[Rfam]
This 86-nucleotide sequence from Bacteriovorax sp. Seq25_V belongs to the Rfam family "tRNA".
RNA sequence: GCUCAGAUGGUGGAAUCGGUAGACACCCAGGAUUUAAAAUCCUGUGGGCUUCACGGCCCGUGCGAGUUCAAGUCUCGCUCUGAGCA
Dot-bracket structure: (((((((..(((...........))).(((((.......))))).................(((((.......)))))))))))).